[Rfam]
RNA: MIR5291 microRNA precursor family
Organism: Medicago truncatula
RNA sequence: GAUUGAUCCAAACCAAUCCAUUAACAAAAAAAUUUGUUUGAUGGAUGGAUUGGAUGGAUUUUGUA
Numbered sequence: 001g002a003u004u005g006a007u008c009c010a011a012a013c014c015a016a017u018c019c020a021u022u023a024a025c026a027a028a029a030a031a032a033u034u035u036g037u038u039u040g041a042u043g044g045a046u047g048g049a050u051u052g053g054a055u056g057g058a059u060u061u062u063g064u065a
Stems, first nucleotide, its partner, number of pairs: 005060004011055001013053010025040004